[Rfam]
RNA sequence: CCUGUGGAGUGUUAUAUCAACCGUAGUAGCGGGCAAGCGGCGGGACGGGACACGUAGAAGCAGGAA
Numbered sequence: 001c002c003u004g005u006g007g008a009g010u011g012u013u014a015u016a017u018c019a020a021c022c023g024u025a026g027u028a029g030c031g032g033g034c035a036a037g038c039g040g041c042g043g044g045a046c047g048g049g050a051c052a053c054g055u056a057g058a059a060g061c062a063g064g065a066a
Stems, first nucleotide, its partner, number of pairs: 001064005009053005021048003029041002033038001
The record is a 66-nucleotide RNA from Niallia endozanthoxylica, which matches "RAGATH-18 RNA" in Rfam.